[Rfam]
RNA sequence: CUAAUCCUGCCGCCGUCCGGAUGACCGGUCGACAUCGGUGCAUCGGCAGGAGUGGAGGACCCGAGUACGACGGGCCCGCCCGGGAAGUCCGGGCGACGCCCUUGGGGUGAAGCCGCAGAGCACGACGCGGCCGGGCAUCUUCGCCUGCCCGAACCCGACAGGUCAUCCUUCUCAGGCGGCUGACGAAGGGUUAU
Numbered sequence: 001c002u003a004a005u006c007c008u009g010c011c012g013c014c015g016u017c018c019g020g021a022u023g024a025c026c027g028g029u030c031g032a033c034a035u036c037g038g039u040g041c042a043u044c045g046g047c048a049g050g051a052g053u054g055g056a057g058g059a060c061c062c063g064a065g066u067a068c069g070a071c072g073g074g075c076c077c078g079c080c081c082g083g084g085a086a087g088u089c090c091g092g093g094c095g096a097c098g099c100c101c102u103u104g105g106g107g108u109g110a111a112g113c114c115g116c117a118g119a120g121c122a123c124g125a126c127g128c129g130g131c132c133g134g135g136c137a138u139c140u141u142c143g144c145c146u147g148c149c150c151g152a153a154c155c156c157g158a159c160a161g162g163u164c165a166u167c168c169u170u171c172u173c174a175g176g177c178g179g180c181u182g183a184c185g186a187a188g189g190g191u192u193a194u
Stems, first nucleotide, its partner, number of pairs: 001175001005051008052173001054171004062104004105156003113130004133150004
This 194-nucleotide sequence from Streptomyces sp. NRRL S-1521 belongs to the Rfam family "c-di-AMP riboswitch aptamer (ydaO/yuaA leader)".